The family of this 205-nucleotide RNA sequence from Miscanthus lutarioriparius is "MIR6217 microRNA precursor family".
RNA sequence: UGGCCAUAGAAUAACUUAUUCUGUGGUCACUUUGAGUUAUGAUAGUUACUAUGCUAAUUUACGAGACUACAGUAACUCAUUACUAAGUGAUUUACUAUAACAUUAUGGUAAAUAUCACCGCGAGUUGUAAUAACACGAGUAUCGUAAAUUGAUACAAACAUUAUCGUAAAUUAAGGUGGCUAUAGAAUAAGUUAUUAUAUGGCCA
Numbered sequence: 001u002g003g004c005c006a007u008a009g010a011a012u013a014a015c016u017u018a019u020u021c022u023g024u025g026g027u028c029a030c031u032u033u034g035a036g037u038u039a040u041g042a043u044a045g046u047u048a049c050u051a052u053g054c055u056a057a058u059u060u061a062c063g064a065g066a067c068u069a070c071a072g073u074a075a076c077u078c079a080u081u082a083c084u085a086a087g088u089g090a091u092u093u094a095c096u097a098u099a100a101c102a103u104u105a106u107g108g109u110a111a112a113u114a115u116c117a118c119c120g121c122g123a124g125u126u127g128u129a130a131u132a133a134c135a136c137g138a139g140u141a142u143c144g145u146a147a148a149u150u151g152a153u154a155c156a157a158a159c160a161u162u163a164u165c166g167u168a169a170a171u172u173a174a175g176g177u178g179g180c181u182a183u184a185g186a187a188u189a190a191g192u193u194a195u196u197a198u199a200u201g202g203c204c205a
Stems, first nucleotide, its partner, number of pairs: 001205008010196024037169010050156001052154002055151008065143002070137001072134002074131001080123002083120001087118005093110007
Notes
Lineage of the source: Eukaryota > commelinids > Andropogoneae > Saccharinae > Miscanthus. It scores 113 bits against the family's covariance model.